Acido-Lenti-1 RNA: a 47-nucleotide RNA sequence from Lacipirellula parvula.

[Rfam]
Nucleotides: 047
Base pairs, nucleotide, nucleotide: 001021002020003019004018005017006015007014008013034046035045036044037043038042
Number, partner (000 for none) and nucleotide at each position: 001021c002020c003019g004018g005017g006015g007014g008013c009000u010000u011000g012000c013008g014007c015006c016000c017005c018004c019003c020002g021001g022000c023000u024000a025000u026000u027000u028000a029000c030000u031000u032000u033000c034046g035045c036044u037043c038042c039000u040000u041000u042038g043037g044036a045035g046034c047000u

The source organism's lineage runs through Bacteria, Pseudomonadati, Planctomycetota, Planctomycetia and Lacipirellula.